This 55-nucleotide RNA sequence from Salmo trutta belongs to the Rfam family "U7 small nuclear RNA". It scores 51 bits against the family's covariance model.

RNA sequence: GAAAAUUUGCUCUUUUAGUAUUUGUCCAGUAGGUUUUCUCAGUGAGGAAGCCCCC
Number, nucleotide and partner (000 for none) at each position: 001g000002a000003a000004a000005a000006u000007u000008u000009g000010c000011u000012c000013u000014u000015u000016u000017a000018g000019u000020a000021u000022u000023u000024g000025u000026c000027c000028a000029g000030u000031a000032g052033g051034u050035u049036u048037u047038c046039u045040c044041a000042g000043u000044g040045a039046g038047g037048a036049a035050g034051c033052c032053c000054c000055c000
Notes
Lineage of the source: Eukaryota > Euteleostomi > Neopterygii > Euteleosteomorpha > Salmo.